Small nucleolar RNA SNORA13: a 140-nucleotide RNA from Megalops atlanticus. Clan: SNORA13 clan. From the family's description: ACA13 is a member of the H/ACA class of snoRNA that guide the sites of modification of uridines to pseudouridines. Its family is annotated with RNA processing and nucleolus in the Gene Ontology. It scores 58 bits against the family's covariance model.
RNA sequence: UGCCUUUUAGUGUUGCCUGUUCAUUCCGUUUGUAAUGGAUAAGGUGUCAACAAAGGCAUACAGCAACUCUUGUGGUGGUCCACAACUCUUGUGGAGAUGUCCACAGUGGCAUCUUAUUCAGGGCUACAACAAGGAUAAGC
Numbered sequence: 001u002g003c004c005u006u007u008u009a010g011u012g013u014u015g016c017c018u019g020u021u022c023a024u025u026c027c028g029u030u031u032g033u034a035a036u037g038g039a040u041a042a043g044g045u046g047u048c049a050a051c052a053a054a055g056g057c058a059u060a061c062a063g064c065a066a067c068u069c070u071u072g073u074g075g076u077g078g079u080c081c082a083c084a085a086c087u088c089u090u091g092u093g094g095a096g097a098u099g100u101c102c103a104c105a106g107u108g109g110c111a112u113c114u115u116a117u118u119c120a121g122g123g124c125u126a127c128a129a130c131a132a133g134g135a136u137a138a139g140c
Base pairs, nucleotide, nucleotide: 002057003056004055005054006053007052011049012048014046015045016044017043018041019040020039021038022037023036024035025034069133070132071131072130073128075127076126077125078124079123088122089121090120091119093117094115095114099110100109